[Rfam]
RNA sequence: GUCGAAGUAAGCUCGCUGGCGGGGGCAAUUGCACCCGGGGAAGGUCUGAGAGGUCACUGUUUUCAGUUCGCCUCGAGAUGGGGCGGGUGGCGCAAGCCACUGCCGGGAACCAGAAAGCUCUCCAUCAGAUGCAUCGGCUGGGCGAUCUCCUUCGGGAGGGACAGUUGUGUCUGAUGGAUUGGGAUAAGCCGGUGACCAGCGCUGUGAGAUCAAUGUUGCGAGGCCGUGCGGAGCGGUAACCCAAUUCAGACUACUCUUCUUCAAC
Numbered sequence: 001g002u003c004g005a006a007g008u009a010a011g012c013u014c015g016c017u018g019g020c021g022g023g024g025g026c027a028a029u030u031g032c033a034c035c036c037g038g039g040g041a042a043g044g045u046c047u048g049a050g051a052g053g054u055c056a057c058u059g060u061u062u063u064c065a066g067u068u069c070g071c072c073u074c075g076a077g078a079u080g081g082g083g084c085g086g087g088u089g090g091c092g093c094a095a096g097c098c099a100c101u102g103c104c105g106g107g108a109a110c111c112a113g114a115a116a117g118c119u120c121u122c123c124a125u126c127a128g129a130u131g132c133a134u135c136g137g138c139u140g141g142g143c144g145a146u147c148u149c150c151u152u153c154g155g156g157a158g159g160g161a162c163a164g165u166u167g168u169g170u171c172u173g174a175u176g177g178a179u180u181g182g183g184a185u186a187a188g189c190c191g192g193u194g195a196c197c198a199g200c201g202c203u204g205u206g207a208g209a210u211c212a213a214u215g216u217u218g219c220g221a222g223g224c225c226g227u228g229c230g231g232a233g234c235g236g237u238a239a240c241c242c243a244a245u246u247c248a249g250a251c252u253a254c255u256c257u258u259c260u261u262c263a264a265c
Stems, first nucleotide, its partner, number of pairs: 001265002004262001007259001009257001012222004020037004046249005052197004070084005086101006102193005121178011223237005

The record is a 265-nucleotide RNA from Oikopleura dioica, which matches "Nuclear RNase P" in Rfam.
Taxonomically the source falls in Oikopleura (Eukaryota, Deuterostomia, Appendicularia, Oikopleuridae).
A search with the family's covariance model found it, with a score of 109 bits.
Ribonuclease P (RNase P) is a ubiquitous endoribonuclease, found in archaea, bacteria and eukarya as well as chloroplasts and mitochondria.